[Rfam]
RNA sequence: GGGUUAGCGACAUUGAGAGCUGUUCAGACUAUGAGAAAGUGUGUGGAAGAGGAUUUGGUGACUUGAACUGGUGCUUCAAGGAAAGCCUAAAGUCCAAGUUCCACUCUUGCUCUCACAGUCUGCACAGCUCUCUGUAUCUCUUCCCC
Numbered sequence: 001g002g003g004u005u006a007g008c009g010a011c012a013u014u015g016a017g018a019g020c021u022g023u024u025c026a027g028a029c030u031a032u033g034a035g036a037a038a039g040u041g042u043g044u045g046g047a048a049g050a051g052g053a054u055u056u057g058g059u060g061a062c063u064u065g066a067a068c069u070g071g072u073g074c075u076u077c078a079a080g081g082a083a084a085g086c087c088u089a090a091a092g093u094c095c096a097a098g099u100u101c102c103a104c105u106c107u108u109g110c111u112c113u114c115a116c117a118g119u120c121u122g123c124a125c126a127g128c129u130c131u132c133u134g135u136a137u138c139u140c141u142u143c144c145c146c
Base pairs, nucleotide, nucleotide: 001146002145003144006141007140009138010137012135013134015132016131017130018129019128020127021126022125023124025122026121027120028119029118030117032115033114034113035112036111
Notes: Rfam assigns this 146-nucleotide RNA sequence from Physcomitrium patens to the family "MIR533 microRNA precursor family". It is one of the family's seed sequences.